[Rfam]
The family of this 74-nucleotide RNA sequence from Geoalkalibacter ferrihydriticus is "c-di-GMP-I-GGC riboswitch aptamer".

RNA sequence: CUUGUAAAGAGCAAACCUGAAGCAAUUCAGGGACGCAAAGCCACGGAUCCUUCGGGAUGGCCGGGUUGCCAAGG
Dot-bracket structure: (.((......((...((((((....))))))..[))..((((.((((((......))).])))))))..))..)
Numbered sequence: 001c002u003u004g005u006a007a008a009g010a011g012c013a014a015a016c017c018u019g020a021a022g023c024a025a026u027u028c029a030g031g032g033a034c035g036c037a038a039a040g041c042c043a044c045g046g047a048u049c050c051u052u053c054g055g056g057a058u059g060g061c062c063g064g065g066u067u068g069c070c071a072a073g074g
Stems, first nucleotide, its partner, number of pairs: 001074001003071002011036002016031006034060001039067004044063003047058003
Pairs were carried over by alignment from the consensus structure, which is taken from published work. Taxonomically the source falls in Geoalkalibacter ferrihydriticus (Bacteria, Thermodesulfobacteriota, Desulfuromonadia, Desulfuromonadales). A reference for the family is Weinberg et al. (2017), "Bioinformatic analysis of riboswitch structures uncovers variant classes with altered ligand specificity", Proc Natl Acad Sci U S A.